[Rfam]
RNA sequence: AAAAAGGGCUUCUGCCAUGUGUGGCACGGGGAGGCCGCGCGCCGUUUCCCGCGGAAUCGACAUCAAGAGAUUUCGGAAGCACAAUUUUUGUGAGGGGGGUAGCCGGUAACCGCUUGUUCUGGCUCCCCG
Numbered sequence: 001a002a003a004a005a006g007g008g009c010u011u012c013u014g015c016c017a018u019g020u021g022u023g024g025c026a027c028g029g030g031g032a033g034g035c036c037g038c039g040c041g042c043c044g045u046u047u048c049c050c051g052c053g054g055a056a057u058c059g060a061c062a063u064c065a066a067g068a069g070a071u072u073u074c075g076g077a078a079g080c081a082c083a084a085u086u087u088u089u090g091u092g093a094g095g096g097g098g099g100u101a102g103c104c105g106g107u108a109a110c111c112g113c114u115u116g117u118u119c120u121g122g123c124u125c126c127c128c129g
Base pairs, nucleotide, nucleotide: 008080009079010078011077012076013026014025015024016023017022027051028050029049030048031047032046033045052075053074054073055072056071057070058069097127098126099125102123103122104121105120106119108118109117110116
Source information:
U11 spliceosomal RNA: a 129-nucleotide sequence from Notiomystis cincta. Its family is annotated with U11 snRNP, mRNA 5'-splice site recognition and pre-mRNA 5'-splice site binding in the Gene Ontology. The family's RNA type in Rfam is spliceosomal small nuclear RNA. Lineage of the source: Eukaryota > Deuterostomia > Vertebrata > Euteleostomi > Notiomystis.